[Rfam]
The family of this 75-nucleotide RNA sequence from Suricata suricatta is "Small nucleolar RNA SNORD19".
Rfam 15.1 lists 1,431 matches to the family in 609 species.
It scores 84 bits against the family's covariance model.
Clan: SNORD19 clan.
On this family, see Huttenhofer et al., EMBO J 2001: "RNomics: an experimental approach that identifies 201 candidates for novel, small, non-messenger RNAs in mouse".
The base pairs follow the family's consensus structure.
Taxonomically the source falls in Suricata (Eukaryota, Euteleostomi, Dipnotetrapodomorpha, Carnivora).
RNA sequence: GAGGUAUGAGGAAAACGUGAGCAGUCUGAUUUUCACUGAAGAUUGUUAAGAUCCAACUCUGAUCUCAAUAAAGCC
Numbered sequence: 001g002a003g004g005u006a007u008g009a010g011g012a013a014a015a016c017g018u019g020a021g022c023a024g025u026c027u028g029a030u031u032u033u034c035a036c037u038g039a040a041g042a043u044u045g046u047u048a049a050g051a052u053c054c055a056a057c058u059c060u061g062a063u064c065u066c067a068a069u070a071a072a073g074c075c
Base pairs, nucleotide, nucleotide: 001066002065003064004063